[Rfam]
RNA sequence: UGAGUAGCACAGAUGAUCGCGGCUGCAUUCGUGCAGGUGAGGAAAGUCCGGGCUUCACAGGGCAGGAUGCCGGAUAACAUCCGGUGGAGGCGACUCCAAGGCCAGUGCAACAGAAAUAUACCGCCAUGGCGAAAGUUAUGGUAAGGGUGGAAAGGCAGUGUAAGAGACUACCGCAUUGCUGGUAACAGCAGUGGCACAUGUAAACCCCAUUCGAAGCAAGACCAAAUAAAAGCGAUAUAAAGGCUGCCCGCCGAGCUUUAGGUAGGUUGCUUGAGCCUGCUGGCAACAGCAGGACUAGAUAGAUGAUCAUCACAGCUUAUGCUGACAUAACCCGGCUUAUAGUGCUGCUCAUUUU
Number, nucleotide and partner (000 for none) at each position: 001u351002g350003a349004g348005u347006a346007g345008c344009a343010c342011a340012g311013a310014u309015g308016a307017u306018c305019g000020c039021g038022g000023c036024u035025g034026c033027a032028u000029u000030c000031g000032u027033g026034c025035a024036g023037g000038u021039g020040a000041g000042g000043a000044a338045a337046g336047u000048c335049c334050g333051g332052g331053c216054u215055u214056c213057a000058c000059a000060g249061g248062g247063c246064a000065g212066g211067a210068u209069g208070c084071c083072g082073g081074a080075u000076a000077a000078c000079a000080u074081c073082c072083g071084g070085u099086g097087g096088a095089g094090g000091c000092g000093a000094c089095u088096c087097c086098a000099a085100g207101g206102c000103c000104a000105g205106u204107g201108c200109a199110a000111c000112a000113g000114a000115a000116a000117u000118a000119u000120a000121c146122c145123g142124c141125c140126a139127u138128g137129g136130c135131g000132a000133a000134a000135g130136u129137u128138a127139u126140g125141g124142u123143a000144a000145g122146g121147g000148u000149g000150g000151a000152a000153a000154g172155g171156c000157a169158g168159u167160g000161u000162a000163a000164g000165a000166g000167a159168c158169u157170a000171c155172c154173g195174c193175a192176u191177u190178g189179c188180u187181g186182g000183u000184a000185a000186c181187a180188g179189c178190a177191g176192u175193g174194g000195c173196a000197c000198a000199u109200g108201u107202a000203a000204a106205c105206c101207c100208c069209a068210u067211u066212c065213g056214a055215a054216g053217c000218a000219a000220g268221a267222c266223c265224a000225a000226a000227u000228a000229a259230a258231a257232g256233c255234g000235a000236u000237a000238u000239a000240a000241a000242g252243g251244c250245u000246g063247c062248c061249c060250g244251c243252c242253g000254a000255g233256c232257u231258u230259u229260a000261g000262g000263u000264a000265g223266g222267u221268u220269g000270c000271u000272u000273g000274a000275g000276c293277c292278u291279g290280c289281u288282g287283g000284c000285a000286a000287c282288a281289g280290c279291a278292g277293g276294a000295c000296u000297a000298g000299a000300u000301a000302g000303a000304u000305g018306a017307u016308c015309a014310u013311c012312a000313c000314a000315g000316c000317u000318u000319a000320u000321g000322c000323u000324g000325a000326c000327a000328u000329a000330a000331c052332c051333c050334g049335g048336c046337u045338u044339a000340u011341a000342g010343u009344g008345c007346u006347g005348c004349u003350c002351a001352u000353u000354u000355u000
Shown here is a 355-nucleotide RNA sequence from Lachnospira eligens, a member of the family "Bacterial RNase P class A". The base pairs follow the family's consensus structure, which is taken from published work. Gene Ontology terms of the family: ribonuclease P activity, dimeric ribonuclease P complex and tRNA processing. It scores 302 bits against the family's covariance model. Ribonuclease P (RNase P) is a ubiquitous endoribonuclease, found in archaea, bacteria and eukarya as well as chloroplasts and mitochondria. The organism belongs to Lachnospira eligens, within Bacteria.